[Rfam]
RNA sequence: UGACCCUCUAGAAUCAGAGAGUCACCUAGCCAACUGACGUUGUUAGUGAAUGAUGAAUUGUUCACAGUUUCAUAGCCAAUCUCACCUAUUGAGAUUGGUUUUUUUCAU
Numbered sequence: 001u002g003a004c005c006c007u008c009u010a011g012a013a014u015c016a017g018a019g020a021g022u023c024a025c026c027u028a029g030c031c032a033a034c035u036g037a038c039g040u041u042g043u044u045a046g047u048g049a050a051u052g053a054u055g056a057a058u059u060g061u062u063c064a065c066a067g068u069u070u071c072a073u074a075g076c077c078a079a080u081c082u083c084a085c086c087u088a089u090u091g092a093g094a095u096u097g098g099u100u101u102u103u104u105u106c107a108u
Base pairs, nucleotide, nucleotide: 001024002023003022004021006019040075041074042073043072046065047064048063049062050061051060052059076098077097078096079095080094081093082092083091
RNA: Qrr RNA